[Rfam]
RNA sequence: UUCUUAUCGCGAGAGACUGAGGGACUGGCCCCAUGAUGUCCGGCAACCUAAAAUUAGAUUUUAAGGUGCUAAUUCCAGCAGGUAAUACCUGGAAGAUAAGAC
Numbered sequence: 001u002u003c004u005u006a007u008c009g010c011g012a013g014a015g016a017c018u019g020a021g022g023g024a025c026u027g028g029c030c031c032c033a034u035g036a037u038g039u040c041c042g043g044c045a046a047c048c049u050a051a052a053a054u055u056a057g058a059u060u061u062u063a064a065g066g067u068g069c070u071a072a073u074u075c076c077a078g079c080a081g082g083u084a085a086u087a088c089c090u091g092g093a094a095g096a097u098a099a100g101a102c
Base pairs, nucleotide, nucleotide: 002101003100004099005098006097007096008095013041015040016039017038021031022030023029025078026077027076028075042070043069044068045067047066048065049063050062051061052060074094079091080090081089082088083087